[Rfam]
RNA sequence: CUCUCCGAAAUGUUUUUAGGAACAGCGUUACGUGUUACUGUCUGUGAGGUAGAGCGACCAACAGGAUGCGGGGGAGUCACAUCCUACCAACUUCUGAUGAACUCCGAAUGCGCAGAGAGGUGCGUGGCAGUGAGGGGCAGGGUGCUAAGGUCCUGCUCCGAGAGGGGAACAACCCAGACCAUCAGCUAAGGUCCCUAAGUGUGUGCUAAGUUGAACAAAGGCGGUCCGGCUGCUGAGACAGCCAGGAGGUUAGCUUGGAAGCAGCUAUUCCUUUAAAGAGUGCGUAACAGCUCACUGGUCGAGCGGGGCGGGCGUCGAUAAUAAACGGGCAUCAAGCACAUCACCGAAGCUAUGGACCUAUACUUUGAGUAUAGUGUGGUAGGAGAGCAUUCCAUGGGGGGUGAAGUUGUGGCGUGAGCCAUGGUGGACCGCAUGGAAAAGCAAAU
Numbered sequence: 001c002u003c004u005c006c007g008a009a010a011u012g013u014u015u016u017u018a019g020g021a022a023c024a025g026c027g028u029u030a031c032g033u034g035u036u037a038c039u040g041u042c043u044g045u046g047a048g049g050u051a052g053a054g055c056g057a058c059c060a061a062c063a064g065g066a067u068g069c070g071g072g073g074g075a076g077u078c079a080c081a082u083c084c085u086a087c088c089a090a091c092u093u094c095u096g097a098u099g100a101a102c103u104c105c106g107a108a109u110g111c112g113c114a115g116a117g118a119g120g121u122g123c124g125u126g127g128c129a130g131u132g133a134g135g136g137g138c139a140g141g142g143u144g145c146u147a148a149g150g151u152c153c154u155g156c157u158c159c160g161a162g163a164g165g166g167g168a169a170c171a172a173c174c175c176a177g178a179c180c181a182u183c184a185g186c187u188a189a190g191g192u193c194c195c196u197a198a199g200u201g202u203g204u205g206c207u208a209a210g211u212u213g214a215a216c217a218a219a220g221g222c223g224g225u226c227c228g229g230c231u232g233c234u235g236a237g238a239c240a241g242c243c244a245g246g247a248g249g250u251u252a253g254c255u256u257g258g259a260a261g262c263a264g265c266u267a268u269u270c271c272u273u274u275a276a277a278g279a280g281u282g283c284g285u286a287a288c289a290g291c292u293c294a295c296u297g298g299u300c301g302a303g304c305g306g307g308g309c310g311g312g313c314g315u316c317g318a319u320a321a322u323a324a325a326c327g328g329g330c331a332u333c334a335a336g337c338a339c340a341u342c343a344c345c346g347a348a349g350c351u352a353u354g355g356a357c358c359u360a361u362a363c364u365u366u367g368a369g370u371a372u373a374g375u376g377u378g379g380u381a382g383g384a385g386a387g388c389a390u391u392c393c394a395u396g397g398g399g400g401g402u403g404a405a406g407u408u409g410u411g412g413c414g415u416g417a418g419c420c421a422u423g424g425u426g427g428a429c430c431g432c433a434u435g436g437a438a439a440a441g442c443a444a445a446u
Stems, first nucleotide, its partner, number of pairs: 001387006011024005026130001027128007037121001038119002041116006052105001053103002059099002063095004070088002072085004134159010164175003179355004184351003190345003199342001201341006220316003224313005230307002232304002241299005247272003252266003273277001278293001282291002356377002358374006388441001390438007398430002406425008
RNA: Bacterial large subunit ribosomal RNA, nucleotides 839 to 1284
Organism: Spirosoma linguale